[Rfam]
RNA sequence: UUCUUAUCCAGAGAGGUGGAGGGACUGGCCCAUUGAAACCUCAGCAACAGAUUUUAAAUACUGUGCUAAUUCCAGAAGCUGAAAUGCUUAAAGCUUGAAGAUAAGGA
Numbered sequence: 001u002u003c004u005u006a007u008c009c010a011g012a013g014a015g016g017u018g019g020a021g022g023g024a025c026u027g028g029c030c031c032a033u034u035g036a037a038a039c040c041u042c043a044g045c046a047a048c049a050g051a052u053u054u055u056a057a058a059u060a061c062u063g064u065g066c067u068a069a070u071u072c073c074a075g076a077a078g079c080u081g082a083a084a085u086g087c088u089u090a091a092a093g094c095u096u097g098a099a100g101a102u103a104a105g106g107a
Base pairs, nucleotide, nucleotide: 001107002106003105004104005103006102007101008100013042014041015040016039017038021031022030023029025075026074027073028072043067044066045065046064048063049062050059052057071099076096077095078094079093080092
Background: The record is a 107-nucleotide sequence from Virgibacillus salinus, which matches "SAM riboswitch aptamer (S box leader)" in Rfam. NCBI's taxonomy places the organism under Bacteria, Bacillati, Bacilli, Caryophanales, Virgibacillus.